This 79-nucleotide sequence from Sorex araneus belongs to the Rfam family "Small nucleolar RNA SNORD103/SNORD85". The sequence is in the family's curated seed alignment. The pairing is the family consensus, mapped onto this sequence. A reference for the family is Huttenhofer et al. (2001), "RNomics: an experimental approach that identifies 201 candidates for novel, small, non-messenger RNAs in mouse", EMBO J. The family's RNA type in Rfam is C/D-box small nucleolar RNA.
[Rfam]
RNA sequence: AUUGGCAAGGAUGACAUCCACUUGCCCUCUCUUAGACUAUAUAGUUCAUUGAUGAGAGCACAAAUUGUUCUGAGCCAAU
Numbered sequence: 001a002u003u004g005g006c007a008a009g010g011a012u013g014a015c016a017u018c019c020a021c022u023u024g025c026c027c028u029c030u031c032u033u034a035g036a037c038u039a040u041a042u043a044g045u046u047c048a049u050u051g052a053u054g055a056g057a058g059c060a061c062a063a064a065u066u067g068u069u070c071u072g073a074g075c076c077a078a079u
Stems, first nucleotide, its partner, number of pairs: 001079006